[Rfam]
RNA sequence: AUGCCCACUGAUUAUAAAAAGACGCGUUAUUCUGAGGAACACAACCUGCCUUCAGUCUCUCCUUCUCUGUCUGCUCCGUCCUCAGUCUCCUCUGGCUUUCCUGUACCUCCUUCUGCUCCUUCUCUUUUCUAACUGCUGGCAGGUCCUUUGACUGCGAUUAUGAGAUAUGAGGGCAU
Numbered sequence: 001a002u003g004c005c006c007a008c009u010g011a012u013u014a015u016a017a018a019a020a021g022a023c024g025c026g027u028u029a030u031u032c033u034g035a036g037g038a039a040c041a042c043a044a045c046c047u048g049c050c051u052u053c054a055g056u057c058u059c060u061c062c063u064u065c066u067c068u069g070u071c072u073g074c075u076c077c078g079u080c081c082u083c084a085g086u087c088u089c090c091u092c093u094g095g096c097u098u099u100c101c102u103g104u105a106c107c108u109c110c111u112u113c114u115g116c117u118c119c120u121u122c123u124c125u126u127u128u129c130u131a132a133c134u135g136c137u138g139g140c141a142g143g144u145c146c147u148u149u150g151a152c153u154g155c156g157a158u159u160a161u162g163a164g165a166u167a168u169g170a171g172g173g174c175a176u
Stems, first nucleotide, its partner, number of pairs: 001176006035091004
Rfam assigns this 176-nucleotide RNA from Menidia menidia to the family "Small nucleolar RNA SNORD97". Pairs were carried over by alignment from the consensus structure, which was predicted with WAR. On this family, see Vitali et al., Nucleic Acids Res 2003: "Identification of 13 novel human modification guide RNAs". It is annotated as a C/D-box small nucleolar RNA.